A member of the RNA family "t44 RNA" from Pseudomonas agarici, 99 nucleotides long.
For this family Rfam cites "Transcriptome analysis of Escherichia coli using high-density oligonucleotide probe arrays" (Tjaden et al., Nucleic Acids Res, 2002).
A search with the family's covariance model found it, with a score of 71 bits.
The family's consensus secondary structure was predicted with LocARNA.
RNA sequence: CCCCGAAAGGCUUAAAUCCACACACGUGUCGACACGAUGACCUGGGUGCCUUCAGCUUGAUGCUGCCGGGUUGGUCAUUGGGAUGCGUGGAGGCCAAAC
Numbered sequence: 001c002c003c004c005g006a007a008a009g010g011c012u013u014a015a016a017u018c019c020a021c022a023c024a025c026g027u028g029u030c031g032a033c034a035c036g037a038u039g040a041c042c043u044g045g046g047u048g049c050c051u052u053c054a055g056c057u058u059g060a061u062g063c064u065g066c067c068g069g070g071u072u073g074g075u076c077a078u079u080g081g082g083a084u085g086c087g088u089g090g091a092g093g094c095c096a097a098a099c
Stems, first nucleotide, its partner, number of pairs: 023089008035080008048071004
Dot-bracket structure: ......................((((((((....((((((((.....((((................)))).)))))))).))))))))..........